[Rfam]
RNA: Streptomyces sRNA 4677
Organism: Streptomyces lacrimifluminis
RNA sequence: UGUUCCGGUCCGACCAGCGGUCUUUCCAAAGAAACGUAGGGAGAAAGAAACCAACCAAACCCCACCCCUCCCGCCCGCCUGCCGGGACGGCCACCGCGCGCCUCACCGCCGCCACCGCGCAAACUCACUCGCCCGAGUGAACAUCGCCAACUCGGCUGGAUCUGCCACCGGUUGCCUGCCCUACGCUCAGCGCAGCACCACCACCAGCACGGACUUCACGACAACCGAAGACAUGAGACGGCCCUCGCCGGGAUUGCACUCCCAAUGCGAGGGCCUGACCACCAAGGAAGACGGAACCUUCCCG
Numbered sequence: 001u002g003u004u005c006c007g008g009u010c011c012g013a014c015c016a017g018c019g020g021u022c023u024u025u026c027c028a029a030a031g032a033a034a035c036g037u038a039g040g041g042a043g044a045a046a047g048a049a050a051c052c053a054a055c056c057a058a059a060c061c062c063c064a065c066c067c068c069u070c071c072c073g074c075c076c077g078c079c080u081g082c083c084g085g086g087a088c089g090g091c092c093a094c095c096g097c098g099c100g101c102c103u104c105a106c107c108g109c110c111g112c113c114a115c116c117g118c119g120c121a122a123a124c125u126c127a128c129u130c131g132c133c134c135g136a137g138u139g140a141a142c143a144u145c146g147c148c149a150a151c152u153c154g155g156c157u158g159g160a161u162c163u164g165c166c167a168c169c170g171g172u173u174g175c176c177u178g179c180c181c182u183a184c185g186c187u188c189a190g191c192g193c194a195g196c197a198c199c200a201c202c203a204c205c206a207g208c209a210c211g212g213a214c215u216u217c218a219c220g221a222c223a224a225c226c227g228a229a230g231a232c233a234u235g236a237g238a239c240g241g242c243c244c245u246c247g248c249c250g251g252g253a254u255u256g257c258a259c260u261c262c263c264a265a266u267g268c269g270a271g272g273g274c275c276u277g278a279c280c281a282c283c284a285a286g287g288a289a290g291a292c293g294g295a296a297c298c299u300u301c302c303c304g
Stems, first nucleotide, its partner, number of pairs: 007283003017112005125140006155191005240275005246269003250263004286302005